Overview:
Shown here is a 263-nucleotide RNA sequence from Senna tora, a member of the family "Early nodulin 40". On this family, see Gultyaev and Roussis, Nucleic Acids Res 2007: "Identification of conserved secondary structures and expansion segments in enod40 RNAs reveals new enod40 homologues in plants". It scores 84 bits against the family's covariance model. By type it is a non-coding RNA gene.
RNA sequence: AUGAAGCUGUGUUGGCAAAUAUCCAUCCAUGGCUCCUAGAUAAAAAGAACCAAAAAAAGCAAGCAUGGAGGAGGCGCGUGUCUCCCACGCGCCACCAAUUCUUACCUACAGUUUGCCUGUGCUUAGCUGUAUUAGGUUUCUCUGUGAUGAAGAUGAUGAGAGGGAGGGAAGGUAGAUAGAAAGCAGAGAAGCAGUUUAUGGCUAAAGCUAAGGUGAACCGGCAAGUCACAGUAAGGCAUUAAUGGGUUUCAUUGUGAUAUAUG
Numbered sequence: 001a002u003g004a005a006g007c008u009g010u011g012u013u014g015g016c017a018a019a020u021a022u023c024c025a026u027c028c029a030u031g032g033c034u035c036c037u038a039g040a041u042a043a044a045a046a047g048a049a050c051c052a053a054a055a056a057a058a059g060c061a062a063g064c065a066u067g068g069a070g071g072a073g074g075c076g077c078g079u080g081u082c083u084c085c086c087a088c089g090c091g092c093c094a095c096c097a098a099u100u101c102u103u104a105c106c107u108a109c110a111g112u113u114u115g116c117c118u119g120u121g122c123u124u125a126g127c128u129g130u131a132u133u134a135g136g137u138u139u140c141u142c143u144g145u146g147a148u149g150a151a152g153a154u155g156a157u158g159a160g161a162g163g164g165a166g167g168g169a170a171g172g173u174a175g176a177u178a179g180a181a182a183g184c185a186g187a188g189a190a191g192c193a194g195u196u197u198a199u200g201g202c203u204a205a206a207g208c209u210a211a212g213g214u215g216a217a218c219c220g221g222c223a224a225g226u227c228a229c230a231g232u233a234a235g236g237c238a239u240u241a242a243u244g245g246g247u248u249u250c251a252u253u254g255u256g257a258u259a260u261a262u263g
Stems, first nucleotide, its partner, number of pairs: 067095001111218006130207001132205004246260002249257001